[Rfam]
Nucleotides: 079
Base pairs, nucleotide, nucleotide: 012037013036017032018031019030020029021028022027040073041072042071043070046068047067048064049063050062051061052060053059054058
Number, partner (000 for none) and nucleotide at each position: 001000u002000u003000c004000c005000g006000a007000c008000a009000a010000g011000a012037g013036c014000a015000a016000a017032a018031c019030c020029a021028g022027g023000g024000c025000a026000a027022u028021c029020u030019g031018g032017u033000g034000a035000c036013g037012c038000a039000a040073a041072g042071c043070u044000a045000u046068g047067g048064g049063u050062u051061c052060g053059c054058a055000c056000u057000a058054u059053g060052c061051g062050g063049a064048u065000c066000g067047c068046c069000u070043g071042g072041c073040u074000a075000c076000c077000g078000a079000a